[Rfam]
This 71-nucleotide sequence from Sediminicurvatus halobius belongs to the Rfam family "tRNA".
By type it is a transfer RNA.
The organism belongs to Sediminicurvatus, within Bacteria.
A search with the family's covariance model found it, with a score of 75 bits.

RNA sequence: GCGGCUGUAGCUCAAUGGUAGAGCGUCGCCCUCCCAAGGCGAUGAUGCCGGUUCGAUUCCGGUCAGCCGCU
Numbered sequence: 001g002c003g004g005c006u007g008u009a010g011c012u013c014a015a016u017g018g019u020a021g022a023g024c025g026u027c028g029c030c031c032u033c034c035c036a037a038g039g040c041g042a043u044g045a046u047g048c049c050g051g052u053u054c055g056a057u058u059c060c061g062g063u064c065a066g067c068c069g070c071u
Base pairs, nucleotide, nucleotide: 001070002069003068004067005066006065007064010024011023012022013021026042027041028040029039030038047063048062049061050060051059